Rfam assigns this 174-nucleotide sequence from Photobacterium gaetbulicola to the family "Group II catalytic intron D1-D4-3". Rfam links the family to the GO term Group II intron splicing. Taxonomically the source falls in Photobacterium gaetbulicola (Bacteria, Gammaproteobacteria, Vibrionales, Vibrionaceae).
RNA sequence: CCCACCGUGAGGUGGGAUCUGAAGGAAGCAAACGGCAAAACUUGGUUGUGACGAACAGAAAUCUGAUAGUAGGCCAGUACAACUUGGGUAACCUAGCAACAUAUAGAAUAGCCCAAUGCCUCGACGGGAAGUGUGUACGGGUAAAUCAGGCACAGCCAAGGGAAAGAACAACGU
Numbered sequence: 001c002c003c004a005c006c007g008u009g010a011g012g013u014g015g016g017a018u019c020u021g022a023a024g025g026a027a028g029c030a031a032a033c034g035g036c037a038a039a040a041c042u043u044g045g046u047u048g049u050g051a052c053g054a055a056c057a058g059a060a061a062u063c064u065g066a067u068a069g070u071a072g073g074c075c076a077g078u079a080c081a082a083c084u085u086g087g088g089u090a091a092c093c094u095a096g097c098a099a100c101a102u103a104u105a106g107a108a109u110a111g112c113c114c115a116a117u118g119c120c121u122c123g124a125c126g127g128g129a130a131g132u133g134u135g136u137a138c139g140g141g142u143a144a145a146u147c148a149g150g151c152a153c154a155g156c157c158a159a160g161g162g163a164a165a166g167a168a169c170a171a172c173g174u
Stems, first nucleotide, its partner, number of pairs: 001016006028174002036166001041160010062150006073142003077138005082132002086114004093106003